[Rfam]
RNA sequence: AGCUCAGUGAUUAGAGCCAAUUAUUGGCAAUAUACGCUAUACUGAGAACUUAUUUGAUGAGAAGUUGGAUAUGAGAGCU
Dot-bracket structure: (((((.....................................................................)))))

Rfam assigns this 79-nucleotide sequence from Brachypodium distachyon to the family "Small nucleolar RNA U54". A reference for the family is Chen et al. (2003), "The high diversity of snoRNAs in plants: identification and comparative study of 120 snoRNA genes from Oryza sativa", Nucleic Acids Res. Its family is annotated with nucleolus and RNA processing in the Gene Ontology. NCBI's taxonomy places the organism under Eukaryota, Tracheophyta, Mesangiospermae, Brachypodieae, Brachypodium.